[Rfam]
RNA sequence: UAAGUAGGUCAGCCUAAUCCUGCCCGCCCAUCGGUGAGAUGGAACAGGAGCGGAGGAACCAAAUUUUGGGGCGAACCGUUUGAAGGGCCAAAAGUACUUUUGGACUUUUGCCUUUUUUAAUGGAGGACACCUCUCAGUCCUAGCCCGUCAGCUAACUCCGUCGGCAUUGAGGGGAGACUGA
Numbered sequence: 001u002a003a004g005u006a007g008g009u010c011a012g013c014c015u016a017a018u019c020c021u022g023c024c025c026g027c028c029c030a031u032c033g034g035u036g037a038g039a040u041g042g043a044a045c046a047g048g049a050g051c052g053g054a055g056g057a058a059c060c061a062a063a064u065u066u067u068g069g070g071g072c073g074a075a076c077c078g079u080u081u082g083a084a085g086g087g088c089c090a091a092a093a094g095u096a097c098u099u100u101u102g103g104a105c106u107u108u109u110g111c112c113u114u115u116u117u118u119a120a121u122g123g124a125g126g127a128c129a130c131c132u133c134u135c136a137g138u139c140c141u142a143g144c145c146c147g148u149c150a151g152c153u154a155a156c157u158c159c160g161u162c163g164g165c166a167u168u169g170a171g172g173g174g175a176g177a178c179u180g181a
Stems, first nucleotide, its partner, number of pairs: 012165003018049005050161006060068002069146003077122004125140004
The family of this 181-nucleotide sequence from filamentous cyanobacterium CCP2 is "c-di-AMP riboswitch aptamer (ydaO/yuaA leader)". The organism belongs to Cyanobacteriota, within Bacteria. This family represents a conserved RNA structure found upstream of the ydaO and yuaA genes in Bacillus subtilis and related genes in other bacteria.